[Rfam]
Nucleotides: 102
Base pairs, nucleotide, nucleotide: 002097003096004095005094006093007092008091010090011089014086018079019078020077022076032063035060036059
Number, partner (000 for none) and nucleotide at each position: 001000a002097g003096c004095u005094g006093g007092u008091c009000u010090g011089a012000g013000u014086g015000c016000c017000a018079u019078g020077g021000u022076g023000u024000u025000c026000a027000c028000a029000c030000c031000u032063g033000a034000u035060a036059g037000a038000u039000c040000a041000c042000a043000a044000c045000c046000a047000g048000c049000u050000a051000c052000a053000g054000a055000u056000u057000u058000c059036c060035u061000u062000g063032u064000u065000c066000c067000u068000u069000c070000u071000c072000c073000a074000c075000u076022c077020c078019c079018a080000c081000u082000g083000c084000u085000u086014c087000a088000c089011u090010u091008g092007a093006c094005u095004a096003g097002c098000c099000u100000u101000a102000a